[Rfam]
RNA sequence: CGGCUGUGAUGAUGACGCUGACAGUCGUCUUCAUCCUGAAACGUUCGGUGUGGGUCAGUCACUACCUCCUCUGAACAGCCG
Numbered sequence: 001c002g003g004c005u006g007u008g009a010u011g012a013u014g015a016c017g018c019u020g021a022c023a024g025u026c027g028u029c030u031u032c033a034u035c036c037u038g039a040a041a042c043g044u045u046c047g048g049u050g051u052g053g054g055u056c057a058g059u060c061a062c063u064a065c066c067u068c069c070u071c072u073g074a075a076c077a078g079c080c081g
Base pairs, nucleotide, nucleotide: 002080003079004078005077006076007075
This 81-nucleotide RNA from Xiphophorus maculatus belongs to the Rfam family "Small nucleolar RNA SNORD11B". NCBI's taxonomy places the organism under Eukaryota, Actinopterygii, Neopterygii, Cyprinodontoidei, Xiphophorus. Its Rfam clan is "SNORD11 clan". For this family Rfam cites "snoSeeker: an advanced computational package for screening of guide and orphan snoRNA genes in the human genome" (Yang et al., Nucleic Acids Res, 2006). The base pairs follow the family's consensus structure, which was predicted with WAR. A search with the family's covariance model found it, with a score of 51 bits. Rfam classes the family as a C/D-box small nucleolar RNA.